[Rfam]
RNA: ASpks TB sRNA
RNA sequence: CUUCACCGACCCCAGCCACACCGGCCGCUCCGCCGGGCGCUCCCGGCCGUAGGUCGCCAGCAGCGCCUGGGCCUC
Numbered sequence: 001c002u003u004c005a006c007c008g009a010c011c012c013c014a015g016c017c018a019c020a021c022c023g024g025c026c027g028c029u030c031c032g033c034c035g036g037g038c039g040c041u042c043c044c045g046g047c048c049g050u051a052g053g054u055c056g057c058c059a060g061c062a063g064c065g066c067c068u069g070g071g072c073c074u075c
Stems, first nucleotide, its partner, number of pairs: 015025003031071001033069001038065002043060001045058001047056001049054001